[Rfam]
RNA sequence: CUCACGCGGGCUGGCGGACCCUCGGUUUUACCCCGAUGGCCCGAUCCGGUGUCUUCGGCCAUGACUCCAUGCGCUGUCGACAAUGCCCGCGGCGGAGCAACCGGAAAAAGGGAAUUUU
Numbered sequence: 001c002u003c004a005c006g007c008g009g010g011c012u013g014g015c016g017g018a019c020c021c022u023c024g025g026u027u028u029u030a031c032c033c034c035g036a037u038g039g040c041c042c043g044a045u046c047c048g049g050u051g052u053c054u055u056c057g058g059c060c061a062u063g064a065c066u067c068c069a070u071g072c073g074c075u076g077u078c079g080a081c082a083a084u085g086c087c088c089g090c091g092g093c094g095g096a097g098c099a100a101c102c103g104g105a106a107a108a109a110g111g112g113a114a115u116u117u118u
Base pairs, nucleotide, nucleotide: 001094003092005091006090007089008088009087010086011085015043016042023035024034025033051081052080053079

The family of this 118-nucleotide RNA sequence from Azospirillum sp. B510 is "rpsB sRNA". The family's consensus secondary structure is taken from published work. On this family, see Meyer et al., BMC Genomics 2009: "Identification of candidate structured RNAs in the marine organism 'Candidatus Pelagibacter ubique'". The family has 4 seed sequences and 245 matches in Rfam 15.1. It is annotated as a small RNA. Lineage of the source: Bacteria > Pseudomonadati > Rhodospirillales > Azospirillaceae > Azospirillum.